[Rfam]
RNA sequence: AAAAGUCACAGCUCUUUCAGAAUUUGUCUAACAGGUGUGUGGUUUAUACCAGAAAGACCCCU
Dot-bracket structure: .................................(((.(.((((....))))...).)))...
RNA: U7 small nuclear RNA